RNA sequence: GAAUGAGAUGAUGAUGAAUAGAUUCCCUAUUGGUUUGAUUUGCCAGAAUGAUGGCGAAAUUAGUAUUAGCUCUGUCUGAUCAUCU
Numbered sequence: 001g002a003a004u005g006a007g008a009u010g011a012u013g014a015u016g017a018a019u020a021g022a023u024u025c026c027c028u029a030u031u032g033g034u035u036u037g038a039u040u041u042g043c044c045a046g047a048a049u050g051a052u053g054g055c056g057a058a059a060u061u062a063g064u065a066u067u068a069g070c071u072c073u074g075u076c077u078g079a080u081c082a083u084c085u
Stems, first nucleotide, its partner, number of pairs: 003083003041056004
About this RNA:
A member of the RNA family "Small nucleolar RNA Z102/R77" from Lactuca sativa, 85 nucleotides long. A reference for the family is Chen et al. (2003), "The high diversity of snoRNAs in plants: identification and comparative study of 120 snoRNA genes from Oryza sativa", Nucleic Acids Res. The organism belongs to Lactuca, within Eukaryota. Clan: SNORD44 clan. A search with the family's covariance model found it, with a score of 79 bits. Its family is annotated with nucleolus and RNA processing in the Gene Ontology.